[Rfam]
The record is a 132-nucleotide sequence from Eleutherodactylus coqui, which matches "Small nucleolar RNA SNORA9" in Rfam.
RNA sequence: GAGCAGGUCUUCCAGCAUGUUGGGGCUCUUAGUAGUUCUGUCCAUUCCUGUAGAUCUGCUAGAUCAGACUUGGGACGGUUUGAGGCCUCUGCCUGCUCCUCCUGGCAGAGGUUAUAGAAAUCCCAGACACCU
Numbered sequence: 001g002a003g004c005a006g007g008u009c010u011u012c013c014a015g016c017a018u019g020u021u022g023g024g025g026c027u028c029u030u031a032g033u034a035g036u037u038c039u040g041u042c043c044a045u046u047c048c049u050g051u052a053g054a055u056c057u058g059c060u061a062g063a064u065c066a067g068a069c070u071u072g073g074g075a076c077g078g079u080u081u082g083a084g085g086c087c088u089c090u091g092c093c094u095g096c097u098c099c100u101c102c103u104g105g106c107a108g109a110g111g112u113u114a115u116a117g118a119a120a121u122c123c124c125a126g127a128c129a130c131c132u
Stems, first nucleotide, its partner, number of pairs: 003059005018044002023038005071125005086111006093104001095102001
It is annotated as an H/ACA-box small nucleolar RNA. Lineage of the source: Eukaryota > Craniata > Vertebrata > Sarcopterygii > Eleutherodactylus. Rfam's curators write: ACA9 is a member of the H/ACA class of snoRNA that guide the sites of modification of uridines to pseudouridines. Its Rfam clan is "SNORA9 clan". The family has 36 seed sequences and 1,202 matches in Rfam 15.1.